[Rfam]
RNA sequence: GUGAAAUGAUGAAGGUGUUUAUCCAUUCUCUGAGUGCUGCUCGCCUGCUCUCUGCAGUGUUCGGGUCUGUUCUAGGCCCGAGCGUUUUGGCUGCCCCCCCCACUGCGUACCUCCAGUGUUUUACUGGGGGUUCUGUGGCUGGGGGCGGGGGCCAGGGCGGGGAUAGUGGGUGUAGCAAUCGCAAAGACGAGUGUAAACUCCUGAUCAC
Numbered sequence: 001g002u003g004a005a006a007u008g009a010u011g012a013a014g015g016u017g018u019u020u021a022u023c024c025a026u027u028c029u030c031u032g033a034g035u036g037c038u039g040c041u042c043g044c045c046u047g048c049u050c051u052c053u054g055c056a057g058u059g060u061u062c063g064g065g066u067c068u069g070u071u072c073u074a075g076g077c078c079c080g081a082g083c084g085u086u087u088u089g090g091c092u093g094c095c096c097c098c099c100c101c102a103c104u105g106c107g108u109a110c111c112u113c114c115a116g117u118g119u120u121u122u123a124c125u126g127g128g129g130g131u132u133c134u135g136u137g138g139c140u141g142g143g144g145g146c147g148g149g150g151g152c153c154a155g156g157g158c159g160g161g162g163a164u165a166g167u168g169g170g171u172g173u174a175g176c177a178a179u180c181g182c183a184a185a186g187a188c189g190a191g192u193g194u195a196a197a198c199u200c201c202u203g204a205u206c207a208c
Base pairs, nucleotide, nucleotide: 010207011206012205017200020197024193025192026191027190028189030186031185034182035181038177039176040175041174042172043171044170045169046168047167048166049165050162051161052160053159054158055156056086057085058084059083060082061081062080063079064078065077066076067075068074089153090152091151092150094148095147102140103137107133109131110130111129112128113127114126115125116124117123118122
The record is a 208-nucleotide RNA sequence from Anguilla anguilla, which matches "Small nucleolar RNA SNORD17" in Rfam. The source organism's lineage runs through Eukaryota, Craniata, Gnathostomata, Euteleostomi and Anguilla. Rfam describes the family as follows. The snoRNA HBI-43 belongs to the C/D family of snoRNAs, guiding 2'O-ribose methylation at position U3797 of the 28S rRNA. Pseudouridylation in position U3797 is predicted to be guided by the H/ACA snoRNA ACA48. A search with the family's covariance model found it, with a score of 86 bits. Rfam classes the family as a C/D-box small nucleolar RNA. On this family, see Huttenhofer et al., EMBO J 2001: "RNomics: an experimental approach that identifies 201 candidates for novel, small, non-messenger RNAs in mouse". Its family is annotated with RNA processing and nucleolus in the Gene Ontology.